[Rfam]
RNA sequence: GGUUUUAACCCAGUUACUCAAGGUAAUUCGGAGUUCCGACCUUUCGAAAGAGAGUGUCGACUAACUUGAAUUUUUGGAUUCUAGCUUCAUCGGGGUAUCCGGUGUGGCAAA
Numbered sequence: 001g002g003u004u005u006u007a008a009c010c011c012a013g014u015u016a017c018u019c020a021a022g023g024u025a026a027u028u029c030g031g032a033g034u035u036c037c038g039a040c041c042u043u044u045c046g047a048a049a050g051a052g053a054g055u056g057u058c059g060a061c062u063a064a065c066u067u068g069a070a071u072u073u074u075u076g077g078a079u080u081c082u083a084g085c086u087u088c089a090u091c092g093g094g095g096u097a098u099c100c101g102g103u104g105u106g107g108c109a110a111a
Base pairs, nucleotide, nucleotide: 007035008034009031010030013027014026015025016024017023037059038058039057040056041054042053043052044051045050086109088107091104092103094100095099